[Rfam]
RNA: int-alpA RNA
RNA sequence: GUCGCACCUAGCCGGCGGCUGAUCACCCCGGCGAACAGCGGGAACCCUUCGCCCGCCGGUGCGACACCCCAUCGAAGGG
Numbered sequence: 001g002u003c004g005c006a007c008c009u010a011g012c013c014g015g016c017g018g019c020u021g022a023u024c025a026c027c028c029c030g031g032c033g034a035a036c037a038g039c040g041g042g043a044a045c046c047c048u049u050c051g052c053c054c055g056c057c058g059g060u061g062c063g064a065c066a067c068c069c070c071a072u073c074g075a076a077g078g079g
Stems, first nucleotide, its partner, number of pairs: 001065008011032004038056005046079004
Dot-bracket structure: ((((((((..((((..............)))).....(((((...[[[[..))))).))))))))..........]]]]